[Rfam]
RNA sequence: ACCGGUCCUCGGUAGUGGCCUCCGGAAGCAGCACGACCACCAGCUUCCGUGGGCCUCGAUCGAAGGCCGGG
Numbered sequence: 001a002c003c004g005g006u007c008c009u010c011g012g013u014a015g016u017g018g019c020c021u022c023c024g025g026a027a028g029c030a031g032c033a034c035g036a037c038c039a040c041c042a043g044c045u046u047c048c049g050u051g052g053g054c055c056u057c058g059a060u061c062g063a064a065g066g067c068c069g070g071g
Stems, first nucleotide, its partner, number of pairs: 002070006009063005017055005023049007